[Rfam]
RNA sequence: GCGUUCACUGCAGGAGAGCUUGAAGGCCAAAAGCCUUCAACGCCGAAGGAGCAACCACCCCGGAAACUCUCAGGCAAAAGGACCGUGGUGAACAA
Numbered sequence: 001g002c003g004u005u006c007a008c009u010g011c012a013g014g015a016g017a018g019c020u021u022g023a024a025g026g027c028c029a030a031a032a033g034c035c036u037u038c039a040a041c042g043c044c045g046a047a048g049g050a051g052c053a054a055c056c057a058c059c060c061c062g063g064a065a066a067c068u069c070u071c072a073g074g075c076a077a078a079a080g081g082a083c084c085g086u087g088g089u090g091a092a093c094a095a
Base pairs, nucleotide, nucleotide: 006090007089008088009087010086011085013083020040021039022038023037024036025035026034042075043074044073045071046070049069050068051067055063056062

Shown here is a 95-nucleotide sequence from Limnohabitans sp. T6-5, a member of the family "Glycine riboswitch aptamer". A search with the family's covariance model found it, with a score of 65 bits. Its family is annotated with glycine biosynthetic process in the Gene Ontology.